[Rfam]
RNA sequence: GAGGGUGUGGCCCCUCGAGGUCGUUGUGCGGAUGAUGGCUUCAAGCCUCCUAGUGCUGCGUUGGAUGAAGACCGUAGUGGUGAGCGUUCAAGGAAAAAGGCGUCCUUGGGUGGGUGUCAGGU
Numbered sequence: 001g002a003g004g005g006u007g008u009g010g011c012c013c014c015u016c017g018a019g020g021u022c023g024u025u026g027u028g029c030g031g032a033u034g035a036u037g038g039c040u041u042c043a044a045g046c047c048u049c050c051u052a053g054u055g056c057u058g059c060g061u062u063g064g065a066u067g068a069a070g071a072c073c074g075u076a077g078u079g080g081u082g083a084g085c086g087u088u089c090a091a092g093g094a095a096a097a098a099g100g101c102g103u104c105c106u107u108g109g110g111u112g113g114g115u116g117u118c119a120g121g122u
Stems, first nucleotide, its partner, number of pairs: 001016005017042006024035004047121001049093003053089001055081002058078002062074003099118006
RNA: Group II catalytic intron D1-D4-2
Organism: Actinomyces sp. oral taxon 849